Record summary:
This 240-nucleotide RNA from Brassica napus belongs to the Rfam family "RNase MRP". The base pairs follow the family's consensus structure, which is taken from published work. Lineage of the source: Eukaryota > Viridiplantae > Magnoliopsida > rosids > Brassica. It scores 78 bits against the family's covariance model.
RNA sequence: CAGUCAGUGGAAGAAGUGAUUGGGCCAUGGGCUUGUCAAAGCUCGGGCCCUGGAAAGUCGCCGGGCCACCAUUCCGCAGAGAUGCGGCCUCGGUAACGAGCGAGUCUUGUGCUUGGAGAAGACAUAAUCGGGCUGAGACACGUGUAUGGAGCCUGUCUCUUAAGCCAAGUUAUUAUGGCCAAUUUAACAGUAAUUCACUUCCCUAACGGGACAACAGAACGGGGCUUACUUCCACUGACA
Number, nucleotide and partner (000 for none) at each position: 001c000002a000003g239004u238005c237006a236007g235008u234009g233010g232011a231012a000013g000014a200015a199016g198017u197018g196019a195020u000021u000022g050023g049024g048025c047026c000027a000028u000029g044030g043031g042032c041033u040034u039035g000036u000037c000038a000039a034040a033041g032042c031043u030044c029045g000046g000047g025048c024049c023050c022051u000052g000053g000054a000055a227056a226057g225058u000059c224060g000061c222062c221063g000064g000065g000066c000067c000068a000069c000070c000071a000072u000073u000074c000075c086076g085077c084078a083079g000080a000081g000082a000083u078084g077085c076086g075087g000088c000089c100090u099091c098092g097093g000094u000095a000096a000097c092098g091099a090100g089101c000102g000103a000104g171105u000106c169107u000108u000109g000110u000111g165112c164113u163114u162115g161116g160117a000118g000119a000120a158121g157122a156123c000124a000125u000126a000127a000128u000129c000130g154131g153132g152133c151134u000135g000136a000137g000138a000139c000140a147141c000142g000143u000144g000145u000146a000147u140148g000149g000150a000151g133152c132153c131154u130155g000156u122157c121158u120159c000160u116161u115162a114163a113164g112165c111166c000167a000168a000169g106170u000171u104172a000173u000174u000175a000176u000177g000178g000179c000180c000181a000182a000183u000184u000185u000186a000187a000188c000189a000190g000191u000192a000193a000194u000195u019196c018197a017198c016199u015200u014201c000202c209203c208204u000205a000206a000207c000208g203209g202210g000211a000212c000213a000214a000215c000216a000217g000218a000219a000220c000221g062222g061223g000224g059225c057226u056227u055228a000229c000230u000231u011232c010233c009234a008235c007236u006237g005238a004239c003240a000